[Rfam]
This 242-nucleotide RNA sequence from Brachypteracias leptosomus belongs to the Rfam family "Small nucleolar RNA SNORD17". Rfam's curators write: The snoRNA HBI-43 belongs to the C/D family of snoRNAs, guiding 2'O-ribose methylation at position U3797 of the 28S rRNA. Pseudouridylation in position U3797 is predicted to be guided by the H/ACA snoRNA ACA48. The match comes from Rfam's covariance-model search (94 bits). Lineage of the source: Eukaryota > Craniata > Telluraves > Coraciiformes > Brachypteracias. Rfam links the family to the GO terms nucleolus and RNA processing. The literature on the family includes a 2001 paper in EMBO J by Huttenhofer et al., "RNomics: an experimental approach that identifies 201 candidates for novel, small, non-messenger RNAs in mouse".
RNA sequence: GUGAGGUGAUGACGAAGUUUAUCCAUUCUCUGAGUGCAGUGGUACUACCCUCCUGCAACACCCUGAUUCCUGUUCUAGGGUCUGAGUGCUGUGCAACCUGCAGAGCCCUGCAGUCUCCGUGUCCUACUGGGGGCUGCUGUGCUGUGUGGCUUGCUGCCUGCAGGAGUGAAGUAGUGCCAAUGGGGUUGGAGCCCCUUUGUGGGGCUCUGUCCUCACUGAUAUGAAAAAUGAUGUCUGAUCAC
Numbered sequence: 001g002u003g004a005g006g007u008g009a010u011g012a013c014g015a016a017g018u019u020u021a022u023c024c025a026u027u028c029u030c031u032g033a034g035u036g037c038a039g040u041g042g043u044a045c046u047a048c049c050c051u052c053c054u055g056c057a058a059c060a061c062c063c064u065g066a067u068u069c070c071u072g073u074u075c076u077a078g079g080g081u082c083u084g085a086g087u088g089c090u091g092u093g094c095a096a097c098c099u100g101c102a103g104a105g106c107c108c109u110g111c112a113g114u115c116u117c118c119g120u121g122u123c124c125u126a127c128u129g130g131g132g133g134c135u136g137c138u139g140u141g142c143u144g145u146g147u148g149g150c151u152u153g154c155u156g157c158c159u160g161c162a163g164g165a166g167u168g169a170a171g172u173a174g175u176g177c178c179a180a181u182g183g184g185g186u187u188g189g190a191g192c193c194c195c196u197u198u199g200u201g202g203g204g205c206u207c208u209g210u211c212c213u214c215a216c217u218g219a220u221a222u223g224a225a226a227a228a229u230g231a232u233g234u235c236u237g238a239u240c241a242c
Stems, first nucleotide, its partner, number of pairs: 010241003017234002020231001026225003031219001034216002039181002042178001043176006050168001051165007059088003063084001065082001068080004093154004098149002105142002107139001110137009119127003183214002185211001187209004192204002